[Rfam]
RNA: Nuclear RNase P
Organism: Microcebus murinus
RNA sequence: GCAGAGGGAAGCUCAUCAAUGGGGCCAGGAGCCGAGUGCAUCAUAUCACUCCACCCCCAUAUCCCUUGGGAAGGUAAGGUCUGAGACUAGGGCCAGAAGCAGCCCUAACAGGGCUCUCCCUGAGUUUCCAGGACGUGAGUUCCCAGAGAACAGGGCUCCUCGGCGAGGUCAGGCUGGGCAGGAGAUGUCAUGGACCCUGCCCCUGAGGAGGGGCCUCCGCUGGAGCUUGGAACAGACUCACGGCCAGGCCAGUGAAGUGAACUCAAUGGCUGAGGUGAGGUACCCCGCACAGGGGCUUCAUAACCCAAUUCAGACUACUCUCCCCCAUC
Number, nucleotide and partner (000 for none) at each position: 001g329002c000003a000004g326005a000006g000007g323008g322009a321010a000011g000012c274013u273014c272015a271016u000017c269018a000019a000020u000021g066022g065023g064024g063025c000026c000027a000028g000029g000030a000031g000032c000033c000034g051035a050036g049037u048038g047039c000040a000041u000042c000043a000044u000045a000046u000047c038048a037049c036050u035051c034052c000053a000054c000055c000056c000057c000058c000059a000060u000061a000062u000063c024064c023065c022066u021067u000068g000069g000070g000071a000072a000073g000074g000075u000076a000077a000078g000079g000080u000081c313082u312083g311084a310085g309086a000087c000088u000089a000090g000091g250092g249093c248094c247095a000096g000097a000098a000099g000100c000101a115102g114103c113104c112105c111106u000107a000108a000109c000110a000111g105112g104113g103114c102115u101116c000117u133118c132119c131120c000121u000122g000123a000124g000125u000126u000127u000128c000129c000130a000131g119132g118133a117134c000135g241136u240137g239138a238139g237140u236141u235142c000143c000144c000145a000146g000147a000148g000149a000150a000151c000152a000153g000154g000155g226156c225157u224158c223159c222160u000161c000162g000163g000164c000165g000166a000167g000168g000169u000170c000171a000172g000173g000174c000175u000176g000177g000178g000179c000180a000181g000182g000183a000184g000185a000186u000187g000188u000189c000190a000191u000192g000193g000194a000195c000196c000197c000198u000199g000200c000201c000202c000203c000204u000205g000206a000207g000208g000209a000210g000211g000212g000213g000214c000215c000216u000217c000218c000219g000220c000221u000222g159223g158224a157225g156226c155227u000228u000229g000230g000231a000232a000233c000234a000235g141236a140237c139238u138239c137240a136241c135242g000243g000244c000245c000246a000247g094248g093249c092250c091251a000252g000253u000254g000255a000256a000257g000258u000259g000260a000261a000262c000263u000264c000265a000266a000267u000268g000269g017270c000271u015272g014273a013274g012275g301276u300277g299278a298279g297280g296281u295282a000283c000284c000285c000286c000287g000288c000289a000290c000291a000292g000293g000294g000295g281296c280297u279298u278299c277300a276301u275302a000303a000304c000305c000306c000307a000308a000309u085310u084311c083312a082313g081314a000315c000316u000317a000318c000319u000320c000321u009322c008323c007324c000325c000326c004327a000328u000329c001